[Rfam]
RNA sequence: GUCACCGACCAGCCUAAUCCGCGCAGCCGCUGCGUGGAGCCGGGGACCCACUUCCCCCCUGGGGCGAAUCGGCACCCCUGUGUCGUAGGGCUACUUCCAGGCCCGAGCCCGUCAGCUAACCCGGCCGGCCGUAUGGAAGGACAGA
Numbered sequence: 001g002u003c004a005c006c007g008a009c010c011a012g013c014c015u016a017a018u019c020c021g022c023g024c025a026g027c028c029g030c031u032g033c034g035u036g037g038a039g040c041c042g043g044g045g046a047c048c049c050a051c052u053u054c055c056c057c058c059c060u061g062g063g064g065c066g067a068a069u070c071g072g073c074a075c076c077c078c079u080g081u082g083u084c085g086u087a088g089g090g091c092u093a094c095u096u097c098c099a100g101g102c103c104c105g106a107g108c109c110c111g112u113c114a115g116c117u118a119a120c121c122c123g124g125c126c127g128g129c130c131g132u133a134u135g136g137a138a139g140g141a142c143a144g145a
Base pairs, nucleotide, nucleotide: 012129013128014127018038019037020036021035022034023033024032025031039125040124041123042122043121044120049061050060062110063109064108070085071084072083073082088104089103090102091101
c-di-AMP riboswitch aptamer (ydaO/yuaA leader): a 145-nucleotide RNA from Nonomuraea jabiensis. A search with the family's covariance model found it, with a score of 80 bits. Lineage of the source: Bacteria > Actinomycetota > Streptosporangiales > Streptosporangiaceae > Nonomuraea.